[Rfam]
RNA sequence: GGCUUUCUUCGCGGCGGAGCUCGACCGCCCACCCAGGUACUGACCGAGUUCAUCGACACUCAUCGUGAGGAGUUCGGGGUCGAGCCGAUCUGUCGAGUGCUGUGCGAGCACGGCGUCAAGAUCGCCCCG
Numbered sequence: 001g002g003c004u005u006u007c008u009u010c011g012c013g014g015c016g017g018a019g020c021u022c023g024a025c026c027g028c029c030c031a032c033c034c035a036g037g038u039a040c041u042g043a044c045c046g047a048g049u050u051c052a053u054c055g056a057c058a059c060u061c062a063u064c065g066u067g068a069g070g071a072g073u074u075c076g077g078g079g080u081c082g083a084g085c086c087g088a089u090c091u092g093u094c095g096a097g098u099g100c101u102g103u104g105c106g107a108g109c110a111c112g113g114c115g116u117c118a119a120g121a122u123c124g125c126c127c128c129g
Stems, first nucleotide, its partner, number of pairs: 013029005075129005086124002089121003092117001094115002
RNA: ALIL pseudoknot
Organism: Luteipulveratus halotolerans